[Rfam]
RNA sequence: CACCACCACCUUCCUACAACGGAUCGUCCGGCACGUUCCUGCCGGUAGAAGGGGGCCCUU
Numbered sequence: 001c002a003c004c005a006c007c008a009c010c011u012u013c014c015u016a017c018a019a020c021g022g023a024u025c026g027u028c029c030g031g032c033a034c035g036u037u038c039c040u041g042c043c044g045g046u047a048g049a050a051g052g053g054g055g056c057c058c059u060u
Base pairs, nucleotide, nucleotide: 010051011050012049014048015047016046028045029044030043031042032041033040
Dot-bracket structure: .........(((.(((...........((((((......)))))))))))).........
The family of this 60-nucleotide RNA sequence from Streptomyces lividans is "msiK RNA". The sequence is in the family's curated seed alignment. Rfam classes the family as a cis-regulatory element. The base pairs follow the family's consensus structure, which is taken from published work.